[Rfam]
Shown here is an 85-nucleotide RNA from Phascolarctobacterium sp. CAG:266, a member of the family "SAM riboswitch aptamer (S box leader)".
Rfam links the family to the GO term regulation of gene expression.
The SAM riboswitch is found upstream of a number of genes which code for proteins involved in methionine or cysteine biosynthesis in Gram-positive bacteria.

RNA sequence: CUCUUAUCGAGAGCGGUUGAGGGACAGGCCCAAUGAAACCCGGCAACCAGGCUGUGCCAUGGUGCUAACUCCUGAUAGAUGAGAG
Numbered sequence: 001c002u003c004u005u006a007u008c009g010a011g012a013g014c015g016g017u018u019g020a021g022g023g024a025c026a027g028g029c030c031c032a033a034u035g036a037a038a039c040c041c042g043g044c045a046a047c048c049a050g051g052c053u054g055u056g057c058c059a060u061g062g063u064g065c066u067a068a069c070u071c072c073u074g075a076u077a078g079a080u081g082a083g084a085g
Stems, first nucleotide, its partner, number of pairs: 001085008013041001015040003021031003025074004042066004047062002050058003070077001